[Rfam]
RNA sequence: UCAUCAUCACCAUCAUAUAGCAUAACCUUUCAGGUUGGUGCUGGAAGGUUUGUUGUUCCUUCCUGUGGCGCAGAUGAAAAGUUCUAAACCCCCGGAAGGCAACUUUCGGGGGUUUUUCGUU
Numbered sequence: 001u002c003a004u005c006a007u008c009a010c011c012a013u014c015a016u017a018u019a020g021c022a023u024a025a026c027c028u029u030u031c032a033g034g035u036u037g038g039u040g041c042u043g044g045a046a047g048g049u050u051u052g053u054u055g056u057u058c059c060u061u062c063c064u065g066u067g068g069c070g071c072a073g074a075u076g077a078a079a080a081g082u083u084c085u086a087a088a089c090c091c092c093c094g095g096a097a098g099g100c101a102a103c104u105u106u107c108g109g110g111g112g113u114u115u116u117u118c119g120u121u
Stems, first nucleotide, its partner, number of pairs: 008040005014034001020031001041065001043063006086115013